[Rfam]
RNA: SAM riboswitch aptamer (S box leader)
Organism: Clostridium sp. CAG:302
RNA sequence: AUUUUAUCAAGAAUGAGGGAGAGAAUUAGCUCUAUGAACUCAUACCAACCUGCAUAAAGUAAGGUGGUACAGCUAAUAACGAUGAAAG
Numbered sequence: 001a002u003u004u005u006a007u008c009a010a011g012a013a014u015g016a017g018g019g020a021g022a023g024a025a026u027u028a029g030c031u032c033u034a035u036g037a038a039c040u041c042a043u044a045c046c047a048a049c050c051u052g053c054a055u056a057a058a059g060u061a062a063g064g065u066g067g068u069a070c071a072g073c074u075a076a077u078a079a080c081g082a083u084g085a086a087a088g
Base pairs, nucleotide, nucleotide: 002087003086004085005084006083007082008081013043014042015041016040017039021032022031023030026076027075028074029073044068045067046066047065049064050063051061052060053059072080